[Rfam]
The family of this 131-nucleotide RNA sequence from Dermacoccus nishinomiyaensis is "FMN riboswitch aptamer (RFN element)".
RNA sequence: GCGUGUACCCGGGGUAGGUGAAAUUCCUAGCCGGCGGUGAAAGUCCGCGACCCGGCCCGCUUCGACAGGGGUCGGUUGACUCGGUGAGAUUCCGAGACCGACGGUUAAAGUCCGGAUGGGAGGUUGCACGC
Numbered sequence: 001g002c003g004u005g006u007a008c009c010c011g012g013g014g015u016a017g018g019u020g021a022a023a024u025u026c027c028u029a030g031c032c033g034g035c036g037g038u039g040a041a042a043g044u045c046c047g048c049g050a051c052c053c054g055g056c057c058c059g060c061u062u063c064g065a066c067a068g069g070g071g072u073c074g075g076u077u078g079a080c081u082c083g084g085u086g087a088g089a090u091u092c093c094g095a096g097a098c099c100g101a102c103g104g105u106u107a108a109a110g111u112c113c114g115g116a117u118g119g120g121a122g123g124u125u126g127c128a129c130g131c
Stems, first nucleotide, its partner, number of pairs: 003129005009123002016028003030111002032100002034048004043098002052075004080096005102114003